Purine riboswitch aptamer: a 102-nucleotide sequence from Bacillus sp. cl95. Taxonomically the source falls in Bacillus (Bacteria, Bacillati, Bacillota, Bacilli). Rfam links the family to the GO term purine nucleobase biosynthetic process. A search with the family's covariance model found it, with a score of 92 bits.
[Rfam]
RNA sequence: UAAAGAUAACAUAAAACACCUCGUAUAAUCUUGGGAAUAUGGCCCAUAAGUUUCUACCCAGCUACCGUAAAUGGCUGGACUAUGAGGGAAAGUGAUACAGUU
Numbered sequence: 001u002a003a004a005g006a007u008a009a010c011a012u013a014a015a016a017c018a019c020c021u022c023g024u025a026u027a028a029u030c031u032u033g034g035g036a037a038u039a040u041g042g043c044c045c046a047u048a049a050g051u052u053u054c055u056a057c058c059c060a061g062c063u064a065c066c067g068u069a070a071a072u073g074g075c076u077g078g079a080c081u082a083u084g085a086g087g088g089a090a091a092g093u094g095a096u097a098c099a100g101u102u
Base pairs, nucleotide, nucleotide: 019087020086021085022084023083024082025081029049032046033045034044035043058078059077060076061075062074063073064072